A member of the RNA family "mir-2970 microRNA precursor family", 80 nucleotides long. Its family is annotated with miRNA-mediated post-transcriptional gene silencing and RISC complex in the Gene Ontology. The literature on the family includes a 2010 paper in Nature by Warren et al., "The genome of a songbird".
[Rfam]
RNA sequence: UGCCCUGCGGACAGUCAGCAGUUGGUCUGGUGUGAGCAGCAAUUCUCAGAUCACCUCUUGGCUGUGGGUGGUGCAGGGAG
Numbered sequence: 001u002g003c004c005c006u007g008c009g010g011a012c013a014g015u016c017a018g019c020a021g022u023u024g025g026u027c028u029g030g031u032g033u034g035a036g037c038a039g040c041a042a043u044u045c046u047c048a049g050a051u052c053a054c055c056u057c058u059u060g061g062c063u064g065u066g067g068g069u070g071g072u073g074c075a076g077g078g079a080g
Base pairs, nucleotide, nucleotide: 003073005071006070007069008068011065012064013063014062015061016060017059018058020056021055023053024052025051026050027049028048029047030046